A member of the RNA family "MIR2629 microRNA precursor family" from Medicago truncatula, 66 nucleotides long. It scores 61 bits against the family's covariance model.
RNA sequence: UACCGAGGUUUUCCUCGGCAGUUAACUACCGAAGUUUUCCUCGGUAGUUAACUACCGAAGCGUCCU
Numbered sequence: 001u002a003c004c005g006a007g008g009u010u011u012u013c014c015u016c017g018g019c020a021g022u023u024a025a026c027u028a029c030c031g032a033a034g035u036u037u038u039c040c041u042c043g044g045u046a047g048u049u050a051a052c053u054a055c056c057g058a059a060g061c062g063u064c065c066u
Base pairs, nucleotide, nucleotide: 012062015059016057017056018055020053021052022051023050024049025048026047027046028045029044
Pairs were carried over by alignment from the consensus structure, which was predicted with RNAalifold.